[Rfam]
RNA sequence: UGAUGAAAGUAGCAUGUUAAGGUACACGUAAAAUGAUUUUUUUGGGUCAGCUUGUCUUCUCCCUCUGAUUUCUCUCAUGGAGGUCGUGAUUUGGUGGCCUGGUUUAGACCCACUUUU
Numbered sequence: 001u002g003a004u005g006a007a008a009g010u011a012g013c014a015u016g017u018u019a020a021g022g023u024a025c026a027c028g029u030a031a032a033a034u035g036a037u038u039u040u041u042u043u044g045g046g047u048c049a050g051c052u053u054g055u056c057u058u059c060u061c062c063c064u065c066u067g068a069u070u071u072c073u074c075u076c077a078u079g080g081a082g083g084u085c086g087u088g089a090u091u092u093g094g095u096g097g098c099c100u101g102g103u104u105u106a107g108a109c110c111c112a113c114u115u116u117u
Stems, first nucleotide, its partner, number of pairs: 012025001014023002044100005054090003059083002
The record is a 117-nucleotide sequence from Populus tomentosa, which matches "Small nucleolar RNA snoR100" in Rfam. The base pairs follow the family's consensus structure, which was predicted with WAR. It is annotated as an H/ACA-box small nucleolar RNA. On this family, see Marker et al., Curr Biol 2002: "Experimental RNomics: identification of 140 candidates for small non-messenger RNAs in the plant Arabidopsis thaliana".